[Rfam]
RNA: Antisense RNA which regulates isiA expression
RNA sequence: GGUAGCUAAAGAUGGUGCCUACGUCUAAGGUGGGAUCGCUAACUACGCGCACUUCCCCCAGAGUGGCAUCAUACAAGCCGCCGAAGAACAUCGCCUUAGCGACUAACAACAGAGCUCCUAAACCAAGAAUGGCCAGAUGGUGCCCUAAGAUGAAGCCCAGCUGCUUGGGAUCAUCCCA
Numbered sequence: 001g002g003u004a005g006c007u008a009a010a011g012a013u014g015g016u017g018c019c020u021a022c023g024u025c026u027a028a029g030g031u032g033g034g035a036u037c038g039c040u041a042a043c044u045a046c047g048c049g050c051a052c053u054u055c056c057c058c059c060a061g062a063g064u065g066g067c068a069u070c071a072u073a074c075a076a077g078c079c080g081c082c083g084a085a086g087a088a089c090a091u092c093g094c095c096u097u098a099g100c101g102a103c104u105a106a107c108a109a110c111a112g113a114g115c116u117c118c119u120a121a122a123c124c125a126a127g128a129a130u131g132g133c134c135a136g137a138u139g140g141u142g143c144c145c146u147a148a149g150a151u152g153a154a155g156c157c158c159a160g161c162u163g164c165u166u167g168g169g170a171u172c173a174u175c176c177c178a
Stems, first nucleotide, its partner, number of pairs: 136175006144169005